Notes
Rfam assigns this 107-nucleotide RNA sequence from Kingdonia uniflora to the family "Small nucleolar RNA snoR99". By type it is an H/ACA-box small nucleolar RNA. Its family is annotated with RNA processing and nucleolus in the Gene Ontology.
RNA sequence: GUACUCUCGGAUAAGUUGGUCACUAAUAUAUAACUUUCAUAUUCCACCUAUCACUUUGUCGGCAUUUUGAUUUUUUUUGUUGCUGAUCAUUUCAAGGUGGAACAUCU
Numbered sequence: 001g002u003a004c005u006c007u008c009g010g011a012u013a014a015g016u017u018g019g020u021c022a023c024u025a026a027u028a029u030a031u032a033a034c035u036u037u038c039a040u041a042u043u044c045c046a047c048c049u050a051u052c053a054c055u056u057u058g059u060c061g062g063c064a065u066u067u068u069g070a071u072u073u074u075u076u077u078u079g080u081u082g083c084u085g086a087u088c089a090u091u092u093c094a095a096g097g098u099g100g101a102a103c104a105u106c107u
Base pairs, nucleotide, nucleotide: 043101044100045099046098047097048096058087059086060085061084062083063082064081